[Rfam]
RNA sequence: GGCCUAAAGCGUCCGUAGCCGGCCCUGUGUGUGGUCCGUUAAAUCCAGCGGCUCAACCGCUGGGCUGCGGAUCAUACUACAGGGCUAGGGGGCGGGAGAGGCCGGGGGUACUCCGCGGGUAGGGGUAAAAUCCGCUGAUCCGCGGAAGACCAACAGUGGCGAAGGCGCCCGGCCAGAACGCGCCCGACGGUGAGGGACGAAAGCCAGGGGAGCGAACCGGAUUAGAUACCCGGGUAGUCCUGGCCGUAAACGAUGCUCGCUAGGUCUUGGCGAAGCUUAGGGCUUCGCCAGGGCCGCAGGGAAGCCGUUAAGCGAGCCGCCUGGGGAGUACGGCCGCAAGGCUGAAACUUAAAGGAAU
Number, nucleotide and partner (000 for none) at each position: 001g321002g320003c319004c000005u000006a000007a000008a000009g318010c000011g198012u197013c196014c195015g000016u192017a000018g191019c190020c189021g000022g085023c084024c083025c082026u081027g080028u079029g000030u000031g077032u074033g073034g072035u071036c070037c069038g068039u067040u000041a000042a000043a000044u000045c063046c062047a061048g060049c059050g058051g057052c000053u000054c000055a000056a000057c051058c050059g049060c048061u047062g046063g045064g000065c000066u000067g039068c038069g037070g036071a035072u034073c033074a032075u000076a000077c031078u000079a028080c027081a026082g025083g024084g023085c022086u000087a000088g000089g185090g184091g183092g181093c180094g179095g000096g000097a000098g000099a000100g174101g173102c172103c171104g170105g169106g168107g151108g150109u000110a000111c000112u146113c145114c144115g143116c142117g141118g140119g000120u000121a000122g133123g132124g131125g000126u000127a000128a000129a000130a000131u124132c123133c122134g000135c000136u000137g000138a000139u000140c118141c117142g116143c115144g114145g113146a112147a000148g000149a000150c108151c107152a000153a000154c000155a000156g000157u000158g000159g166160c165161g000162a000163a000164g000165g160166c159167g000168c106169c105170c104171g103172g102173c101174c100175a000176g000177a000178a000179c094180g093181c092182g000183c091184c090185c089186g000187a000188c000189g020190g019191u018192g016193a000194g000195g014196g013197a012198c011199g000200a000201a000202a000203g244204c243205c242206a241207g240208g239209g000210g000211a000212g238213c237214g000215a000216a000217c233218c232219g231220g230221a000222u000223u000224a000225g000226a000227u000228a000229c000230c220231c219232g218233g217234g000235u000236a000237g213238u212239c208240c207241u206242g205243g204244c203245c000246g000247u000248a000249a000250a000251c000252g000253a000254u000255g317256c316257u315258c314259g313260c312261u000262a000263g295264g294265u293266c292267u291268u290269g289270g288271c287272g286273a285274a284275g283276c282277u000278u000279a000280g000281g000282g276283c275284u274285u273286c272287g271288c270289c269290a268291g267292g266293g265294c264295c263296g000297c000298a000299g306300g305301g000302a000303a000304g000305c300306c299307g000308u000309u000310a000311a000312g260313c259314g258315a257316g256317c255318c009319g003320c002321c001322u000323g350324g349325g348326g000327a000328g000329u000330a000331c000332g343333g342334c341335c340336g000337c000338a000339a000340g335341g334342c333343u332344g000345a000346a000347a000348c325349u324350u323351a000352a000353a000354g000355g000356a000357a000358u000

Shown here is a 358-nucleotide part of an RNA from an uncultured Nitrososphaerota archaeon, a member of the family "Archaeal small subunit ribosomal RNA".
It is one of the family's seed sequences.
Pairs were carried over by alignment from the consensus structure, which is taken from published work.
Rfam 15.1 lists 709 matches to the family in 491 species.
Its family is annotated with structural constituent of ribosome and ribosome in the Gene Ontology.
For this family Rfam cites "The comparative RNA web (CRW) site: an online database of comparative sequence and structure information for ribosomal, intron, and other RNAs" (Cannone et al., BMC Bioinformatics, 2002).